Rfam assigns this 95-nucleotide RNA sequence from Sedimentibacter sp. zth1 to the family "SAM riboswitch aptamer (S box leader)". About the family: The SAM riboswitch is found upstream of a number of genes which code for proteins involved in methionine or cysteine biosynthesis in Gram-positive bacteria. The SAM riboswitch acts at the level of transcription termination control. The predicted structure consists of a complex stem-loop region followed by a single stem loop terminator region. An alternative and mutually exclusive form involves bases in the 3' segment of helix 1 with those in the 5' region of helix 5 to form a structure termed the anti-terminator form. This entry represents the conserved core of the complex structure involving helices 1-4. Pairs were carried over by alignment from the consensus structure, which is taken from published work.
[Rfam]
RNA sequence: ACCUUAUCAAGAGUGGUGGAGGGAAUAGGCCCUUAGAAACCCGGCAGCCUGUUAAAUCAAGGUGCUAAAUCCUACGUAAUUACGAAAGAUGAGGA
Dot-bracket structure: .(((((((....(.(((...(((..[[[[)))......))))((((.((((......)).))))))...(]]]](((....)))..)))))))).
Numbered sequence: 001a002c003c004u005u006a007u008c009a010a011g012a013g014u015g016g017u018g019g020a021g022g023g024a025a026u027a028g029g030c031c032c033u034u035a036g037a038a039a040c041c042c043g044g045c046a047g048c049c050u051g052u053u054a055a056a057u058c059a060a061g062g063u064g065c066u067a068a069a070u071c072c073u074a075c076g077u078a079a080u081u082a083c084g085a086a087a088g089a090u091g092a093g094g095a
Stems, first nucleotide, its partner, number of pairs: 002094007013042001015041003021032003026074004043066004048062002050059002070087001075084003